[Rfam]
c-di-AMP riboswitch aptamer (ydaO/yuaA leader): a 131-nucleotide RNA sequence from Rossellomorea marisflavi.
RNA sequence: AUCAUAUCAUCGCUUAAUUCUUUACAGAAGCGGGGGACCCGAGUUCAUACAGGGGUGAAUCCUUCUAAGGUAGGGCUGCUUCCAUGGCCCGAAUCCGUCAGCUAACCUCGUAAGCGUAAAUGGGAGUGAAU
Numbered sequence: 001a002u003c004a005u006a007u008c009a010u011c012g013c014u015u016a017a018u019u020c021u022u023u024a025c026a027g028a029a030g031c032g033g034g035g036g037a038c039c040c041g042a043g044u045u046c047a048u049a050c051a052g053g054g055g056u057g058a059a060u061c062c063u064u065c066u067a068a069g070g071u072a073g074g075g076c077u078g079c080u081u082c083c084a085u086g087g088c089c090c091g092a093a094u095c096c097g098u099c100a101g102c103u104a105a106c107c108u109c110g111u112a113a114g115c116g117u118a119a120a121u122g123g124g125a126g127u128g129a130a131u
Base pairs, nucleotide, nucleotide: 011116012115013114014113018029019028020027030111031110032109033108034107035106040052053096054095055094061070062069063068073090074089075088076087
It scores 104 bits against the family's covariance model. The source organism's lineage runs through Bacteria, Bacillati, Bacilli, Bacillaceae and Rossellomorea.